[Rfam]
RNA sequence: UCGUUCAGGGAUCGCCCCCCACCAGCGAGUUUCGCCCGUGGGGGCAAUGCCA
Numbered sequence: 001u002c003g004u005u006c007a008g009g010g011a012u013c014g015c016c017c018c019c020c021a022c023c024a025g026c027g028a029g030u031u032u033c034g035c036c037c038g039u040g041g042g043g044g045c046a047a048u049g050c051c052a
Stems, first nucleotide, its partner, number of pairs: 016044007025035004